[Rfam]
RNA sequence: CGGGGAAAGAAGACCCUGUUGAGCUUGACUCUAGUUUGACAUUGUGAAAAGACAUAGGGGGUGUAGAAUAGGUGGGAGCUUCGGCGCCGGUGAAAUACCACUACCCUUAUCGUUUUUUUACUUAUUCAAUGAAGCGGAACUGGACUUCACCGUCCAUCUUCUGGCGUUAAGGUCCUUCGCGGGCCGAUCCGGGUUGAAGACAUUGUCAGGUGGGGAGUUUGGCUGGGGCGGCACAUCUGUUAAACCAUAACGCAGGUGUCCUAAGGGGGACUCAUGGAGAACAGAAAUCUCCAGUAGAGCAAAAGGGCAAAAGUCCCCUUGAUUUUGAUUUUCAGUGUGAAUACAAACCAUGAAAGUGUGGCCUAUCGAUCCUUUAGUCCCUCGAAAUUUGAGGCUAGAGGUGCCAGAAAAGUUACCACAGGGAUAACUGGCUUGUGGCAGCCAAGCGUUCAUAGCGACGUUGCUUUUUGAUCCUUCGAUGUCGGCUCUUCCUAUCAUACCGAAGCAGAAUUCGGUAAGCGUUGGAUUGUUCACCCACUAAUAGGGAACGUGAGCUGGGUUUAGACCGUCGUGAGACAGGUUAGUUUUACCCUA
Numbered sequence: 001c002g003g004g005g006a007a008a009g010a011a012g013a014c015c016c017u018g019u020u021g022a023g024c025u026u027g028a029c030u031c032u033a034g035u036u037u038g039a040c041a042u043u044g045u046g047a048a049a050a051g052a053c054a055u056a057g058g059g060g061g062u063g064u065a066g067a068a069u070a071g072g073u074g075g076g077a078g079c080u081u082c083g084g085c086g087c088c089g090g091u092g093a094a095a096u097a098c099c100a101c102u103a104c105c106c107u108u109a110u111c112g113u114u115u116u117u118u119u120a121c122u123u124a125u126u127c128a129a130u131g132a133a134g135c136g137g138a139a140c141u142g143g144a145c146u147u148c149a150c151c152g153u154c155c156a157u158c159u160u161c162u163g164g165c166g167u168u169a170a171g172g173u174c175c176u177u178c179g180c181g182g183g184c185c186g187a188u189c190c191g192g193g194u195u196g197a198a199g200a201c202a203u204u205g206u207c208a209g210g211u212g213g214g215g216a217g218u219u220u221g222g223c224u225g226g227g228g229c230g231g232c233a234c235a236u237c238u239g240u241u242a243a244a245c246c247a248u249a250a251c252g253c254a255g256g257u258g259u260c261c262u263a264a265g266g267g268g269g270a271c272u273c274a275u276g277g278a279g280a281a282c283a284g285a286a287a288u289c290u291c292c293a294g295u296a297g298a299g300c301a302a303a304a305g306g307g308c309a310a311a312a313g314u315c316c317c318c319u320u321g322a323u324u325u326u327g328a329u330u331u332u333c334a335g336u337g338u339g340a341a342u343a344c345a346a347a348c349c350a351u352g353a354a355a356g357u358g359u360g361g362c363c364u365a366u367c368g369a370u371c372c373u374u375u376a377g378u379c380c381c382u383c384g385a386a387a388u389u390u391g392a393g394g395c396u397a398g399a400g401g402u403g404c405c406a407g408a409a410a411a412g413u414u415a416c417c418a419c420a421g422g423g424a425u426a427a428c429u430g431g432c433u434u435g436u437g438g439c440a441g442c443c444a445a446g447c448g449u450u451c452a453u454a455g456c457g458a459c460g461u462u463g464c465u466u467u468u469u470g471a472u473c474c475u476u477c478g479a480u481g482u483c484g485g486c487u488c489u490u491c492c493u494a495u496c497a498u499a500c501c502g503a504a505g506c507a508g509a510a511u512u513c514g515g516u517a518a519g520c521g522u523u524g525g526a527u528u529g530u531u532c533a534c535c536c537a538c539u540a541a542u543a544g545g546g547a548a549c550g551u552g553a554g555c556u557g558g559g560u561u562u563a564g565a566c567c568g569u570c571g572u573g574a575g576a577c578a579g580g581u582u583a584g585u586u587u588u589a590c591c592c593u594a
Stems, first nucleotide, its partner, number of pairs: 003593003007588002015422004020418002022414005028218004035210007044121010054110007071102005078085002125198005135191004143154003171185005221234001222232003235257006260361002266318006272298002275293006299308002323347003328342004349358003372400006380394004431472001433470001435469001437465006446456002483558001484556004488550001489547005496521001499516006523537003527533001564582004568577003

Annotation:
The family of this 594-nucleotide part of an RNA from Lasiodiplodia theobromae is "Eukaryotic large subunit ribosomal RNA". Taxonomically the source falls in Lasiodiplodia (Eukaryota, Dikarya, Pezizomycotina, Botryosphaeriales). The base pairs follow the family's consensus structure, which is taken from published work.